[Rfam]
RNA sequence: GACUAGCCCUGAUUGCAGUGGCAUCCUUUUUUUGCUUUUAUAAGUGGCAAAAAAAGAUACAACGGAAAGCAGGAAUUAGC
Numbered sequence: 001g002a003c004u005a006g007c008c009c010u011g012a013u014u015g016c017a018g019u020g021g022c023a024u025c026c027u028u029u030u031u032u033u034g035c036u037u038u039u040a041u042a043a044g045u046g047g048c049a050a051a052a053a054a055a056g057a058u059a060c061a062a063c064g065g066a067a068a069g070c071a072g073g074a075a076u077u078a079g080c
Base pairs, nucleotide, nucleotide: 009072010071011070013068014067018063019062023058024057025056029053030052031051032050033049034048035047036046
Dot-bracket structure: ........(((.((...((...(((...((((((((.........))))))))..)))...))...)).)))........